[Rfam]
This 88-nucleotide RNA sequence from Macleaya cordata belongs to the Rfam family "Small nucleolar RNA snoR8a". The base pairs follow the family's consensus structure, which was predicted with WAR. It scores 90 bits against the family's covariance model. The family's RNA type in Rfam is C/D-box small nucleolar RNA. The family has 7 seed sequences and 956 matches in Rfam 15.1.

RNA sequence: GGGGGUGCGAUGAUUAUAAAAAAUUCCUCGUACUGAAUGCUAAUGGCAUUGCAUGAUAGACUUUUUCUACCCAUAGAAUAUGAGCACC
Numbered sequence: 001g002g003g004g005g006u007g008c009g010a011u012g013a014u015u016a017u018a019a020a021a022a023a024u025u026c027c028u029c030g031u032a033c034u035g036a037a038u039g040c041u042a043a044u045g046g047c048a049u050u051g052c053a054u055g056a057u058a059g060a061c062u063u064u065u066u067c068u069a070c071c072c073a074u075a076g077a078a079u080a081u082g083a084g085c086a087c088c
Base pairs, nucleotide, nucleotide: 003088004087006086007085